A member of the RNA family "dauA ncRNA motif" from Streptomyces aureus, 88 nucleotides long.

[Rfam]
RNA sequence: ACGCCCCUGCCGACGGCGCGCCAGAGGGCCGGGAUCCCCGGCGUCACCUCAUCCGCUGCCGGAUGGUCCACCGAAUCGAGGCGUCAUG
Numbered sequence: 001a002c003g004c005c006c007c008u009g010c011c012g013a014c015g016g017c018g019c020g021c022c023a024g025a026g027g028g029c030c031g032g033g034a035u036c037c038c039c040g041g042c043g044u045c046a047c048c049u050c051a052u053c054c055g056c057u058g059c060c061g062g063a064u065g066g067u068c069c070a071c072c073g074a075a076u077c078g079a080g081g082c083g084u085c086a087u088g
Stems, first nucleotide, its partner, number of pairs: 001084005010062003015057004020052001024048001026044001028042005064078003

The source organism's lineage runs through Bacteria, Actinomycetota, Actinomycetes, Streptomycetaceae and Streptomyces. Rfam's curators write: dauA ncRNA motif was reported as a strong cis regulatory motif candidate, with potential to be a cis regulatory riboswitch type, it have been identified in genomes of the genus Streptomyces. The sequence is in the family's curated seed alignment. The family's consensus secondary structure is taken from published work. For this family Rfam cites "The discovery of novel noncoding RNAs in 50 bacterial genomes" (Narunsky et al., Nucleic Acids Res, 2024).